[Rfam]
RNA sequence: UCCCCCACAGUUCUCCGAGUUCUCGUUUUCCGCAAGGAAUGUCCUUUCUAGGGCCUCUCUGCUGGGCUGGGUCUACCACGAUACGUCGCGAUCUCGUACCUGUAUCAGGAAUCUCGCAUGAUCGCCGCGCAAUGGGUUUAUUGUGGCCGCGGUUGUCUCCGGUGCAACUGACAAGCCAGUUGACCCAGCGAGGGUACGGGUCUCGGAACUUAACCCUAAGUAUUCGGU
Numbered sequence: 001u002c003c004c005c006c007a008c009a010g011u012u013c014u015c016c017g018a019g020u021u022c023u024c025g026u027u028u029u030c031c032g033c034a035a036g037g038a039a040u041g042u043c044c045u046u047u048c049u050a051g052g053g054c055c056u057c058u059c060u061g062c063u064g065g066g067c068u069g070g071g072u073c074u075a076c077c078a079c080g081a082u083a084c085g086u087c088g089c090g091a092u093c094u095c096g097u098a099c100c101u102g103u104a105u106c107a108g109g110a111a112u113c114u115c116g117c118a119u120g121a122u123c124g125c126c127g128c129g130c131a132a133u134g135g136g137u138u139u140a141u142u143g144u145g146g147c148c149g150c151g152g153u154u155g156u157c158u159c160c161g162g163u164g165c166a167a168c169u170g171a172c173a174a175g176c177c178a179g180u181u182g183a184c185c186c187a188g189c190g191a192g193g194g195u196a197c198g199g200g201u202c203u204c205g206g207a208a209c210u211u212a213a214c215c216c217u218a219a220g221u222a223u224u225c226g227g228u
Base pairs, nucleotide, nucleotide: 009210010209011208015206016205017204018203
The record is a 228-nucleotide part of an RNA from Cytospora leucostoma, which matches "Ascomycota telomerase RNA" in Rfam. On this family, see Qi et al., Nucleic Acids Res 2013: "The common ancestral core of vertebrate and fungal telomerase RNAs". NCBI's taxonomy places the organism under Eukaryota, Fungi, Dikarya, leotiomyceta, Cytospora. The family is grouped with related families in Rfam's "Telomerase clan". It is annotated as a non-coding RNA gene. Its family is annotated with telomere maintenance via telomerase, telomerase activity and telomerase catalytic core complex in the Gene Ontology.